[Rfam]
Shown here is a 116-nucleotide RNA sequence from Terasakiella magnetica, a member of the family "Glycine riboswitch aptamer". Lineage of the source: Bacteria > Pseudomonadati > Alphaproteobacteria > Rhodospirillales > Terasakiella. It scores 40 bits against the family's covariance model.

Nucleotides: 116
Stems, first nucleotide, its partner, number of pairs: 001116005012035004037104003040100002044098003050091007
Number, partner (000 for none) and nucleotide at each position: 001116c002115u003114c004113u005112g006000g007000a008000a009000a010000g011000u012035g013034g014033a015032u016000u017000g018000c019000a020000c021000g022000u023000u024000u025000a026000u027000a028000u029000g030000c031000c032015a033014u034013c035012c036000c037104a038103c039102c040100g041099a042000c043000g044098a045097g046096g047000a048000a049000a050091c051090c052089c053088u054087a055086c056085a057000c058000g059000c060000a061000u062000a063000g064000g065000c066000u067000c068000g069000u070000g071000u072000a073000u074000u075000u076000g077000a078000g079000c080000c081000a082000a083000g084000c085056u086055g087054u088053g089052g090051g091050g092000g093000a094000a095000u096046c097045u098044u099041u100040c101000a102039g103038g104037u105000u106000c107000c108000a109000u110000g111000a112005c113004a114003g115002a116001g